[Rfam]
RNA sequence: AAUGUAUGACGCCGUUGACUUUUUGACAAACGUUUGACCAUUCGUCUUAUUUAAAAAAUUUAUGUAAUUAUAAUUUAUUUUAUUAUGACUUGAUUUCUCAUCAAAUAUUCUUUAAGCUUGACAUAAGUAUUUUUAUAUUUGCAUAAAAAUUUUGAAUAAGGCGAGUGGUCAAAUGUUGAUUAAAAAGUCAAUGGCGUCAUAUAUC
Dot-bracket structure: ............................((((((((((((((((((((((.........................................................................................................))))))))))))))))))))))............................
Rfam assigns this 205-nucleotide RNA from Oryza meridionalis to the family "MIR812 microRNA precursor family".
NCBI's taxonomy places the organism under Eukaryota, Viridiplantae, Oryzoideae, Oryzeae, Oryza.
Rfam 15.1 lists 57,451 matches to the family in 24 species.
It scores 80 bits against the family's covariance model.
The family's consensus secondary structure was predicted with RNAalifold.
Gene Ontology terms of the family: RISC complex and miRNA-mediated post-transcriptional gene silencing.